RNA sequence: UGCGGGUAAGCCGAAAACCGUAUCAGAGAGUAGGCA
Numbered sequence: 001u002g003c004g005g006g007u008a009a010g011c012c013g014a015a016a017a018c019c020g021u022a023u024c025a026g027a028g029a030g031u032a033g034g035c036a
Base pairs, nucleotide, nucleotide: 002021003020004019005018010035011034012033
RNA: DUF805b RNA